[Rfam]
Nucleotides: 114
Stems, first nucleotide, its partner, number of pairs: 003112008017029003031094002033084002035048004043082002051060003064080005086097003
Number, partner (000 for none) and nucleotide at each position: 001000a002000g003112a004111u005110a006109u007108c008107u009106u010105c011000a012000g013000g014000g015000c016000a017029g018028g019027g020000u021000g022000a023000a024000a025000u026000u027019c028018c029017c030000g031094a032093c033084c034083g035048g036047c037046g038045g039000u040000a041000a042000a043082g044081c045038c046037c047036g048035c049000g050000a051060g052059c053058c054000g055000a056000a057000a058053g059052g060051c061000a062000g063000a064080u065079c066078u067077g068076g069000u070000g071000u072000g073000a074000u075000u076068c077067c078066a079065g080064a081044g082043c083034c084033g085000a086097c087096a088095g089000u090000a091000a092000a093032g094031u095088c096087u097086g098000g099000a100000u101000g102000g103000a104000a105010g106009a107008g108007g109006a110005u111004a112003u113000u114000u

Shown here is a 114-nucleotide sequence from Caloramator mitchellensis, a member of the family "FMN riboswitch aptamer (RFN element)". The organism belongs to Caloramator, within Bacteria. The RFN element is a highly conserved domain that is found frequently in the 5'-untranslated regions of prokaryotic mRNAs that encode for flavin mononucleotide (FMN) biosynthesis and transport proteins. The family's consensus secondary structure is taken from published work.